[Rfam]
RNA: mir-9242 microRNA precursor family
RNA sequence: GGCCUCCCUCUGUGGGGUGAUCAAUUGCAGGGCUCCACAAUCGAUCGCCCCACAGAGGGAGGCC
Number, nucleotide and partner (000 for none) at each position: 001g064002g063003c062004c061005u060006c059007c058008c057009u056010c055011u054012g053013u052014g051015g050016g049017g048018u047019g046020a045021u044022c043023a000024a041025u040026u039027g038028c000029a000030g035031g000032g000033c000034u000035c030036c000037a000038c027039a026040a025041u024042c000043g022044a021045u020046c019047g018048c017049c016050c015051c014052a013053c012054a011055g010056a009057g008058g007059g006060a005061g004062g003063c002064c001